[Rfam]
RNA sequence: UACCUUAGGGGAGAAACUGUGCGUUCUAUGUUGAAGAAUGCUUUUUAAUUCACUUUGAAAGUCAUAAGCGUAUAGCUUUUCCCCUUAGGUG
Dot-bracket structure: ..(((.(.(((.((..(((((..((.((((................................))))))..)))))..)).))).).)))..
RNA: mir-965 microRNA precursor family